[Rfam]
Nucleotides: 319
Base pairs, nucleotide, nucleotide: 040055041054042053043052044051059191060190061189062188063187069184070183071182072181074179075178084169085168086167088166089165090164094110095109096108097107098106111151112150113149114148115147116146117145192208193207194206197219198218199217202215203214281298282297283296284295289315290314291313292312293311
Number, partner (000 for none) and nucleotide at each position: 001000c002000c003000u004000c005000u006000u007000c008000c009000c010000a011000a012000a013000g014000c015000g016000u017000c018000g019000u020000u021000u022000g023000c024000c025000c026000c027000u028000u029000a030000u031000a032000u033000g034000g035000a036000u037000g038000g039000g040055g041054c042053c043052g044051g045000u046000g047000c048000a049000a050000g051044c052043c053042g054041g055040c056000u057000a058000u059191g060190a061189c062188a063187c064000u065000a066000a067000a068000c069184c070183u071182c072181a073000c074179g075178c076000g077000g078000a079000a080000u081000a082000a083000g084169c085168g086167u087000u088166g089165c090164g091000g092000a093000c094110c095109c096108g097107g098106g099000g100000g101000c102000g103000g104000u105000a106098c107097c108096c109095g110094g111151c112150g113149c114148c115147u116146c117145c118000a119000c120000c121000a122000u123000u124000u125000c126000c127000g128000g129000c130000u131000u132000u133000c134000g135000g136000g137000c138000g139000g140000g141000a142000u143000c144000u145117g146116g147115g148114g149113g150112c151111g152000a153000a154000a155000u156000a157000g158000g159000a160000u161000c162000g163000a164090c165089g166088u167086g168085c169084g170000u171000g172000g173000u174000a175000a176000a177000g178075g179074c180000c181072u182071g183070a184069g185000c186000u187063g188062u189061g190060u191059u192208c193207g194206g195000c196000a197219u198218g199217g200000u201000a202215c203214c204000c205000a206194c207193c208192g209000u210000u211000a212000u213000c214203g215202g216000g217199c218198c219197a220000a221000c222000u223000c224000u225000g226000a227000c228000a229000a230000g231000u232000g233000c234000c235000a236000a237000c238000g239000a240000c241000a242000a243000c244000g245000u246000u247000g248000a249000a250000c251000u252000u253000g254000c255000c256000g257000c258000u259000g260000c261000g262000g263000c264000g265000u266000a267000a268000a269000a270000c271000a272000c273000c274000g275000u276000a277000a278000g279000c280000g281298c282297g283296g284295u285000u286000c287000g288000g289315g290314g291313g292312g293311g294000c295284a296283c297282c298281g299000g300000g301000c302000a303000a304000c305000a306000g307000a308000a309000g310000c311293c312292c313291c314290c315289c316000c317000a318000c319000u

Alphaproteobacteria transfer-messenger RNA: a 319-nucleotide sequence from Pararhodospirillum photometricum. Rfam classes the family as a non-coding RNA gene. Taxonomically the source falls in Pararhodospirillum photometricum (Bacteria, Pseudomonadota, Alphaproteobacteria, Pararhodospirillum).